[Rfam]
RNA sequence: GCAUCGGUUUAGCUCAAUGGUUACUUCUACAACUGAACGUAUCUCUCCUUAGGUCCGCGGGCCAAAGGGUUCAACCAUGGGCGCUGUCCGAUGUUUUG
Numbered sequence: 001g002c003a004u005c006g007g008u009u010u011a012g013c014u015c016a017a018u019g020g021u022u023a024c025u026u027c028u029a030c031a032a033c034u035g036a037a038c039g040u041a042u043c044u045c046u047c048c049u050u051a052g053g054u055c056c057g058c059g060g061g062c063c064a065a066a067g068g069g070u071u072c073a074a075c076c077a078u079g080g081g082c083g084c085u086g087u088c089c090g091a092u093g094u095u096u097u098g
Stems, first nucleotide, its partner, number of pairs: 002093006012082004017078004026074001029071001
RNA: Vault RNA
Organism: Parambassis ranga